Bacterial large subunit ribosomal RNA: a 438-nucleotide part of an RNA from Sebaldella termitidis. It scores 2720 bits against the family's covariance model.

[Rfam]
RNA sequence: CUCUCCGAAAUGCAUUUAGGUGCAGCCUUAACAAAGAACUAUGGGGGUAGAGCACUGUAUGGCCUAGGGGGCGUAUAGCUUACUGAAGUCAAGCAAACUGCGAAUACUAUAGUUUAAUUGUUAGGAGUGAGUCUGUGGGUGACAAGGUCCGCAGACGAGAGGGAAACAGCCCAGACCACCAGCUAAGGUCCCUAAUUAUGUCUAAGUGGGGAAGGAGGUGGACAUUCAGAAACAACCAGGAGGUUGGCUUAGAAGCAGCCAUACCUUUAAAGAGUGCGUAAUAGCUCACUGGUCGAGAGUGUCUGCGCCGAAGAUGUAACGGGGCUAAGACAUAAACCGAAGCUGUGGAAACUAACGUAAGUUAGUUUGGUAGGAGAGCGUUCUGUAGGCCGAAGAAGGUGUGCUGUAAGGCAUGCUGGAGGUAUCAGAAGUGAGAAU
Numbered sequence: 001c002u003c004u005c006c007g008a009a010a011u012g013c014a015u016u017u018a019g020g021u022g023c024a025g026c027c028u029u030a031a032c033a034a035a036g037a038a039c040u041a042u043g044g045g046g047g048u049a050g051a052g053c054a055c056u057g058u059a060u061g062g063c064c065u066a067g068g069g070g071g072c073g074u075a076u077a078g079c080u081u082a083c084u085g086a087a088g089u090c091a092a093g094c095a096a097a098c099u100g101c102g103a104a105u106a107c108u109a110u111a112g113u114u115u116a117a118u119u120g121u122u123a124g125g126a127g128u129g130a131g132u133c134u135g136u137g138g139g140u141g142a143c144a145a146g147g148u149c150c151g152c153a154g155a156c157g158a159g160a161g162g163g164a165a166a167c168a169g170c171c172c173a174g175a176c177c178a179c180c181a182g183c184u185a186a187g188g189u190c191c192c193u194a195a196u197u198a199u200g201u202c203u204a205a206g207u208g209g210g211g212a213a214g215g216a217g218g219u220g221g222a223c224a225u226u227c228a229g230a231a232a233c234a235a236c237c238a239g240g241a242g243g244u245u246g247g248c249u250u251a252g253a254a255g256c257a258g259c260c261a262u263a264c265c266u267u268u269a270a271a272g273a274g275u276g277c278g279u280a281a282u283a284g285c286u287c288a289c290u291g292g293u294c295g296a297g298a299g300u301g302u303c304u305g306c307g308c309c310g311a312a313g314a315u316g317u318a319a320c321g322g323g324g325c326u327a328a329g330a331c332a333u334a335a336a337c338c339g340a341a342g343c344u345g346u347g348g349a350a351a352c353u354a355a356c357g358u359a360a361g362u363u364a365g366u367u368u369g370g371u372a373g374g375a376g377a378g379c380g381u382u383c384u385g386u387a388g389g390c391c392g393a394a395g396a397a398g399g400u401g402u403g404c405u406g407u408a409a410g411g412c413a414u415g416c417u418g419g420a421g422g423u424a425u426c427a428g429a430a431g432u433g434a435g436a437a438u
Stems, first nucleotide, its partner, number of pairs: 001378006011024005026127001027125007035118001036115009050101001051099002056095003060091004067084002069081004131156010161172003176348004181344003187338003196335007214309002218306010235293005241266003246260003267271001272287001276285002349368008379433001381430005389423003398417008